[Rfam]
RNA sequence: UUCUUAUCCAGAGAGGCUGAGGGACUGGCCCUGAGACGCCCGGCAACCUUCUUAGGCAUUUAUCUAAGAAAGGUGCUAAUUCCUGCAGAAGAAUAAUCUUCUGAAAGAUAAGGA
Numbered sequence: 001u002u003c004u005u006a007u008c009c010a011g012a013g014a015g016g017c018u019g020a021g022g023g024a025c026u027g028g029c030c031c032u033g034a035g036a037c038g039c040c041c042g043g044c045a046a047c048c049u050u051c052u053u054a055g056g057c058a059u060u061u062a063u064c065u066a067a068g069a070a071a072g073g074u075g076c077u078a079a080u081u082c083c084u085g086c087a088g089a090a091g092a093a094u095a096a097u098c099u100u101c102u103g104a105a106a107g108a109u110a111a112g113g114a
Base pairs, nucleotide, nucleotide: 001114002113003112004111005110006109007108008107013041015040016039017038021031022030023029025085027083028082042077043076044075045074047073048072049070050069051068052067053066054065055064081106086103087102088101089100090099091098
RNA: SAM riboswitch aptamer (S box leader)
Organism: Desulforamulus reducens